[Rfam]
Nucleotides: 140
Stems, first nucleotide, its partner, number of pairs: 001138003005134003012127005019120008028111003032107001045095001
Number, partner (000 for none) and nucleotide at each position: 001138g002137c003136a004000u005134a006133u007132u008000u009000c010000a011000u012127g013126u014125u015124u016123g017000c018000u019120c020119g021118u022117g023116a024115a025114u026113c027000u028111a029110a030109c031000g032107u033000u034000u035000u036000a037000a038000g039000c040000a041000c042000a043000u044000a045095c046000c047000u048000a049000u050000u051000g052000u053000g054000g055000g056000g057000a058000u059000u060000u061000c062000u063000u064000g065000u066000u067000u068000a069000u070000u071000a072000a073000c074000a075000a076000u077000a078000a079000c080000g081000g082000u083000u084000u085000u086000c087000u088000c089000a090000c091000a092000u093000c094000u095045g096000g097000u098000a099000u100000c101000u102000c103000a104000a105000u106000u107032a108000c109030g110029u111028u112000a113026g114025a115024u116023u117022c118021a119020c120019g121000c122000a123016c124015a125014a126013a127012c128000u129000c130000g131000u132007a133006a134005u135000c136003u137002g138001u139000c140000u

Shown here is a 140-nucleotide RNA sequence from Phtheirospermum japonicum, a member of the family "MIR403 microRNA precursor family". Its family is annotated with RISC complex and miRNA-mediated post-transcriptional gene silencing in the Gene Ontology. For this family Rfam cites "High throughput approaches reveal splicing of primary microRNA transcripts and tissue specific expression of mature microRNAs in Vitis vinifera" (Mica et al., BMC Genomics, 2009). The base pairs follow the family's consensus structure, which was predicted with WAR. The source organism's lineage runs through Eukaryota, eudicotyledons, Pentapetalae, asterids and Phtheirospermum. It scores 71 bits against the family's covariance model.